Purine riboswitch aptamer: a 102-nucleotide sequence from Bacillus taeanensis.
RNA sequence: AUUAGUUUACAAUACCUAAAUCGUAUAAUAUCGGGAAUAGGGCCCGAAAGUCUCUACCAGGCUACCGUAAAUAGCUUGACUACGAGUUAGGAUAAUGAAGUA
Numbered sequence: 001a002u003u004a005g006u007u008u009a010c011a012a013u014a015c016c017u018a019a020a021u022c023g024u025a026u027a028a029u030a031u032c033g034g035g036a037a038u039a040g041g042g043c044c045c046g047a048a049a050g051u052c053u054c055u056a057c058c059a060g061g062c063u064a065c066c067g068u069a070a071a072u073a074g075c076u077u078g079a080c081u082a083c084g085a086g087u088u089a090g091g092a093u094a095a096u097g098a099a100g101u102a
Stems, first nucleotide, its partner, number of pairs: 018088002021085005029049001031047005058078007

Lineage of the source: Bacteria > Bacillati > Caryophanales > Bacillaceae > Bacillus.